RNA sequence: GGGUGCUUGAGGCUGUCUGUCUCAGGCAUUAGCUGAACGGCAGAUAGAGAAAAGCCCCGAGUGAUAUUUUACCAUCAACCCGAGGCCCCCUAUAUGCAGAACACAUGUAGAGUGCCUCUUACUGACCGUAAGGUCAAGGAGAAGAGAGCAAUG
Numbered sequence: 001g002g003g004u005g006c007u008u009g010a011g012g013c014u015g016u017c018u019g020u021c022u023c024a025g026g027c028a029u030u031a032g033c034u035g036a037a038c039g040g041c042a043g044a045u046a047g048a049g050a051a052a053a054g055c056c057c058c059g060a061g062u063g064a065u066a067u068u069u070u071a072c073c074a075u076c077a078a079c080c081c082g083a084g085g086c087c088c089c090c091u092a093u094a095u096g097c098a099g100a101a102c103a104c105a106u107g108u109a110g111a112g113u114g115c116c117u118c119u120u121a122c123u124g125a126c127c128g129u130a131a132g133g134u135c136a137a138g139g140a141g142a143a144g145a146g147a148g149c150a151a152u153g
Base pairs, nucleotide, nucleotide: 001058002057003056005055006054007053008052013047014046015045016044017043018042019041020040021039026034059081061079062078063076064075065074082118083117084116085115086114088112090110091109092108093107094106095105096104122144123143127139
Shown here is a 153-nucleotide RNA sequence from Escherichia coli, a member of the family "sok antitoxin (CssrC)". Rfam links the family to the GO term mRNA binding. Also identified in Shigella as CssrC. The family has 91 seed sequences and 305 matches in Rfam 15.1. It scores 117 bits against the family's covariance model. It is annotated as an antitoxin RNA.